[Rfam]
RNA sequence: GAUAAGGCGGGAGAGAAACCCGCCCACCGAAAGACUAAGGUUUCCUGAUCAACGCUAAUCGGAUCAGGGUUAGUCGGGGCCUAAGGUGAAGCCGACAGGCGUAGCCGAUGGACAACUGGUUAAUAUUCCAGUACUUUUUAUAACUGCGAUGCGGUGACGGAGUAGUGAAACUGACGCGAACUGACGGAAUAGUUCGUUAAAUGCCGUAGGUAUAGGAGAGGUAGUAAAGUACGCCACUCUUGCUGAAAGCAGAUAGUACACUGAGCCUUCGGGUAAGGUGAUAGUUCAGGUAAUCAGACUUCCAAGAAAACCCGCUAAGCUUCAGGUUAUAAAAACCCGUACCGUAAACCGACACAGGUAGUCGAGGAGAGAAUCCUAAGGUGCU
Numbered sequence: 001g002a003u004a005a006g007g008c009g010g011g012a013g014a015g016a017a018a019c020c021c022g023c024c025c026a027c028c029g030a031a032a033g034a035c036u037a038a039g040g041u042u043u044c045c046u047g048a049u050c051a052a053c054g055c056u057a058a059u060c061g062g063a064u065c066a067g068g069g070u071u072a073g074u075c076g077g078g079g080c081c082u083a084a085g086g087u088g089a090a091g092c093c094g095a096c097a098g099g100c101g102u103a104g105c106c107g108a109u110g111g112a113c114a115a116c117u118g119g120u121u122a123a124u125a126u127u128c129c130a131g132u133a134c135u136u137u138u139u140a141u142a143a144c145u146g147c148g149a150u151g152c153g154g155u156g157a158c159g160g161a162g163u164a165g166u167g168a169a170a171c172u173g174a175c176g177c178g179a180a181c182u183g184a185c186g187g188a189a190u191a192g193u194u195c196g197u198u199a200a201a202u203g204c205c206g207u208a209g210g211u212a213u214a215g216g217a218g219a220g221g222u223a224g225u226a227a228a229g230u231a232c233g234c235c236a237c238u239c240u241u242g243c244u245g246a247a248a249g250c251a252g253a254u255a256g257u258a259c260a261c262u263g264a265g266c267c268u269u270c271g272g273g274u275a276a277g278g279u280g281a282u283a284g285u286u287c288a289g290g291u292a293a294u295c296a297g298a299c300u301u302c303c304a305a306g307a308a309a310a311c312c313c314g315c316u317a318a319g320c321u322u323c324a325g326g327u328u329a330u331a332a333a334a335a336c337c338c339g340u341a342c343c344g345u346a347a348a349c350c351g352a353c354a355c356a357g358g359u360a361g362u363c364g365a366g367g368a369g370a371g372a373a374u375c376c377u378a379a380g381g382u383g384c385u
Stems, first nucleotide, its partner, number of pairs: 006024006025383004033363004039343002044068006053061002075339004080111002085106003089102001091100003115132005135335011146320002151315004159302004165295001171289004176197006198256001202251003209244003216239003220235003224232002258282001267280001269278002349358002365377004